[Rfam]
RNA sequence: GGUUGCAAGCUUGAUGCCAUAGCAGAAGCACUCAUGGCGCUGCCUGUUAGACUCCAGCAAAUCUGUGAAUUCUGCU
Dot-bracket structure: ............[..[[...(((((((((.........)).]]]...((((.(......).))))....)))))))
Numbered sequence: 001g002g003u004u005g006c007a008a009g010c011u012u013g014a015u016g017c018c019a020u021a022g023c024a025g026a027a028g029c030a031c032u033c034a035u036g037g038c039g040c041u042g043c044c045u046g047u048u049a050g051a052c053u054c055c056a057g058c059a060a061a062u063c064u065g066u067g068a069a070u071u072c073u074g075c076u
Stems, first nucleotide, its partner, number of pairs: 013044001016043002021076007028040002048065004053060001
This 76-nucleotide RNA sequence from Crocodylus porosus belongs to the Rfam family "Mammalian CPEB3 ribozyme". The literature on the family includes a 2006 paper in Science by Salehi-Ashtiani et al., "A genomewide search for ribozymes reveals an HDV-like sequence in the human CPEB3 gene". The match comes from Rfam's covariance-model search (39 bits). Taxonomically the source falls in Crocodylus (Eukaryota, Dipnotetrapodomorpha, Tetrapoda, Crocodylidae).